[Rfam]
RNA sequence: CGGCGUCUGAUUAUGAGACAAGAAUUAAAAUCCAGUGUGGGAAGAAGACGGCCCCCAAGGAACGCGUUCCACAACAAUUCUUCACUCUGGACACGCCGCGGGAACCUGCCUCGGCUACAACCAGAAGUAAGUAUCGACGUCUGAUUAUGGGACAAGAAUUAAGCAGGCAUGAAAUUUAUGUUUGGCAAUUGCACCUGCCUUAUGGAUGCGAGGAGUAAAGGUUAAAAUAGAGGAUUUAUUUCGGUUCUUUGAAUUUAUUAAAGAAACCUGUCCUU
Number, nucleotide and partner (000 for none) at each position: 001c000002g000003g000004c000005g000006u030007c000008u028009g000010a000011u000012u000013a025014u024015g000016a000017g000018a000019c000020a000021a000022g000023a000024a014025u013026u000027a000028a008029a000030a006031u000032c000033c000034a000035g000036u047037g000038u045039g000040g000041g000042a000043a000044g000045a038046a000047g036048a000049c000050g000051g000052c000053c000054c000055c000056c000057a000058a000059g000060g000061a000062a000063c000064g000065c000066g000067u000068u000069c000070c000071a000072c000073a000074a000075c000076a000077a000078u000079u000080c000081u000082u000083c000084a128085c127086u126087c124088u123089g000090g000091a000092c000093a000094c000095g000096c000097c113098g112099c000100g110101g109102g000103a000104a000105c000106c000107u000108g000109c101110c100111u000112c098113g097114g000115c000116u000117a000118c000119a000120a000121c000122c000123a088124g087125a000126a086127g085128u084129a000130a000131g000132u000133a000134u155135c000136g153137a000138c000139g000140u151141c150142u149143g148144a000145u000146u000147a000148u143149g142150g141151g140152a000153c136154a000155a134156g000157a000158a000159u000160u202161a201162a200163g198164c197165a196166g000167g000168c000169a000170u000171g000172a000173a000174a000175u000176u000177u000178a000179u000180g000181u000182u000183u000184g000185g000186c000187a000188a000189u000190u000191g000192c000193a000194c000195c000196u165197g164198c163199c000200u162201u161202a160203u000204g000205g000206a000207u000208g000209c251210g250211a249212g248213g247214a246215g245216u244217a000218a000219a237220g236221g235222u234223u233224a000225a000226a000227a000228u000229a000230g000231a000232g000233g223234a222235u221236u220237u219238a000239u000240u000241u000242c000243g000244g216245u215246u214247c213248u212249u211250u210251g209252a000253a000254u000255u000256u000257a000258u000259u000260a275261a274262a000263g272264a271265a000266a000267c000268c000269u000270g000271u264272c263273c000274u261275u260

This 275-nucleotide RNA from Nannospalax galili belongs to the Rfam family "Mason-Pfizer monkey virus packaging signal". The family has 9 seed sequences and 2,921 matches in Rfam 15.1. Gene Ontology term of the family: viral genome packaging. The source organism's lineage runs through Eukaryota, Vertebrata, Sarcopterygii, Rodentia and Nannospalax. Rfam's curators write: This family represents a group of sequences that are related to the Mason-Pfizer monkey virus (MPMV) packaging signal. The packaging signal is located in the 5' UTR and is required for specific RNA encapsidation.